Source information: A member of the RNA family "Glycine riboswitch aptamer" from Arthrobacter terricola, 98 nucleotides long. It scores 64 bits against the family's covariance model. The source organism's lineage runs through Bacteria, Bacillati, Actinomycetota, Micrococcaceae and Arthrobacter.

[Rfam]
RNA sequence: UGACCUGCGGCGGGAGAGUCCUGCAAGCAAGUGAUGCAGGCGCCGUAGGAGCAAACCCUCCCCAGGAAUCUCUCAGGCCAAUGCACCGCCGCGGCAAG
Numbered sequence: 001u002g003a004c005c006u007g008c009g010g011c012g013g014g015a016g017a018g019u020c021c022u023g024c025a026a027g028c029a030a031g032u033g034a035u036g037c038a039g040g041c042g043c044c045g046u047a048g049g050a051g052c053a054a055a056c057c058c059u060c061c062c063c064a065g066g067a068a069u070c071u072c073u074c075a076g077g078c079c080a081a082u083g084c085a086c087c088g089c090c091g092c093g094g095c096a097a098g
Stems, first nucleotide, its partner, number of pairs: 006093008020040006042078003045074001049072003